RNA sequence: GACCGCGUCAUCCGGGGAGUAGCCGGCCGCCCAUCGGGCGGGGAUCGCGUCAACAUGCUUGGGGGAGACCUCAUGGCGCGGUCGAGCUUUCGAGCUUGGCAAGACCGAUGACACCCGACCUCCGCCUGCCGGGCGGGGGGUCUGGUGUCGUCUGUCCAUAGUCCGCCCGGC
Dot-bracket structure: ..........................(((.........))).((((((((((.......(((((....))))))))))))))).......(..............................................................................).
Rfam assigns this 171-nucleotide RNA from Rhizorhabdus wittichii to the family "Manganese Mn2+ riboswitch aptamer (yybP-ykoY)". The match comes from Rfam's covariance-model search (60 bits). NCBI's taxonomy places the organism under Bacteria, Alphaproteobacteria, Rhizorhabdaceae, Rhizorhabdus, Rhizorhabdus wittichii. The family has 29 seed sequences and 1,126 matches in Rfam 15.1.